[Rfam]
RNA sequence: GGGGGUUCUUGGGUGAUACACUCCAGAAUCAGUUUCUAUCCUCUCUGGUUCCUGCAUGCGUCACCUGAGAACCACA
Numbered sequence: 001g002g003g004g005g006u007u008c009u010u011g012g013g014u015g016a017u018a019c020a021c022u023c024c025a026g027a028a029u030c031a032g033u034u035u036c037u038a039u040c041c042u043c044u045c046u047g048g049u050u051c052c053u054g055c056a057u058g059c060g061u062c063a064c065c066u067g068a069g070a071a072c073c074a075c076a
Stems, first nucleotide, its partner, number of pairs: 002075001005072013019058002023054001026051007
This 76-nucleotide RNA sequence from Myotis davidii belongs to the Rfam family "mir-9223 microRNA precursor family". A search with the family's covariance model found it, with a score of 62 bits. The family's consensus secondary structure was predicted with RNAalifold.